[Rfam]
RNA sequence: CCAUCAUCACCAUUUGACCGACUAAUCUUUCGGGCAUUUGGCGUGUUCGGAAGAUAACUUCCGAGAGCGAAUAGCAGGCUAACAGCACAGAUUCACAACCCCUCGGAAGACAACUUUCGAGGGGUUUUUCUU
Numbered sequence: 001c002c003a004u005c006a007u008c009a010c011c012a013u014u015u016g017a018c019c020g021a022c023u024a025a026u027c028u029u030u031c032g033g034g035c036a037u038u039u040g041g042c043g044u045g046u047u048c049g050g051a052a053g054a055u056a057a058c059u060u061c062c063g064a065g066a067g068c069g070a071a072u073a074g075c076a077g078g079c080u081a082a083c084a085g086c087a088c089a090g091a092u093u094c095a096c097a098a099c100c101c102c103u104c105g106g107a108a109g110a111c112a113a114c115u116u117u118c119g120a121g122g123g124g125u126u127u128u129u130c131u132u
Stems, first nucleotide, its partner, number of pairs: 008045003011040002018033004046065008095128001097126013
Annotation
Shown here is a 132-nucleotide RNA sequence from Actinobacillus indolicus, a member of the family "Histidine operon leader". On this family, see Kolter and Yanofsky, Annu Rev Genet 1982: "Attenuation in amino acid biosynthetic operons". The organism belongs to Actinobacillus, within Bacteria. Rfam's curators write: At least 6 amino acid operons are known to be regulated by attenuation. In each a leader sequence of 150-200 bp is found upstream of the first gene in the operon. This leader sequence can assume two different secondary structures known as the terminator and the anti-terminator structure. In each case the leader also codes for very short peptide sequence that is rich in the end product amino acid of the operon. Pairs were carried over by alignment from the consensus structure, which is taken from published work. Rfam links the family to the GO term histidine biosynthetic process.